[Rfam]
RNA sequence: GGGGAGCAUCUAAAAGCUUGAAUGCUGCCUGAUACAACCUUCCUACAAAAAGAAAACACCCUGUAGUUUCCUGCUUGUAGUGCUGGAGCAAGUUCUGCAAGUCUCAUAUCUAAAGGGACAUAU
Numbered sequence: 001g002g003g004g005a006g007c008a009u010c011u012a013a014a015a016g017c018u019u020g021a022a023u024g025c026u027g028c029c030u031g032a033u034a035c036a037a038c039c040u041u042c043c044u045a046c047a048a049a050a051a052g053a054a055a056a057c058a059c060c061c062u063g064u065a066g067u068u069u070c071c072u073g074c075u076u077g078u079a080g081u082g083c084u085g086g087a088g089c090a091a092g093u094u095c096u097g098c099a100a101g102u103c104u105c106a107u108a109u110c111u112a113a114a115g116g117g118a119c120a121u122a123u
Stems, first nucleotide, its partner, number of pairs: 001030003005026005011020001060116003073102008082093003

Notes:
This 123-nucleotide RNA sequence from Turnera subulata belongs to the Rfam family "Small nucleolar RNA snoR104". NCBI's taxonomy places the organism under Eukaryota, Tracheophyta, Spermatophyta, Magnoliopsida, Turnera. Rfam classes the family as an H/ACA-box small nucleolar RNA. It scores 95 bits against the family's covariance model. Gene Ontology terms of the family: nucleolus and RNA processing.